This 98-nucleotide RNA from Halomonas heilongjiangensis belongs to the Rfam family "t44 RNA". Rfam describes the family as follows. This family consists of a number of bacterial RNA genes of between 135 and 170 bases in length. A search with the family's covariance model found it, with a score of 73 bits. The source organism's lineage runs through Bacteria, Pseudomonadati, Pseudomonadota, Halomonadaceae and Halomonas.
RNA sequence: AAAGCAACGCCUUGAAAACACACAUGCACCGGCACAUGGUCCCGGGUGCCGUCGGUUCAUCCCGGCGGUCGGAUCCAUGGGGUGCGUGGAGGCCUAAC
Numbered sequence: 001a002a003a004g005c006a007a008c009g010c011c012u013u014g015a016a017a018a019c020a021c022a023c024a025u026g027c028a029c030c031g032g033c034a035c036a037u038g039g040u041c042c043c044g045g046g047u048g049c050c051g052u053c054g055g056u057u058c059a060u061c062c063c064g065g066c067g068g069u070c071g072g073a074u075c076c077a078u079g080g081g082g083u084g085c086g087u088g089g090a091g092g093c094c095u096a097a098c
Base pairs, nucleotide, nucleotide: 023088024087025086026085027084028083029082030081035079036078037077038076039075040073041072042071048069049068050067051066052065
It is annotated as a small RNA.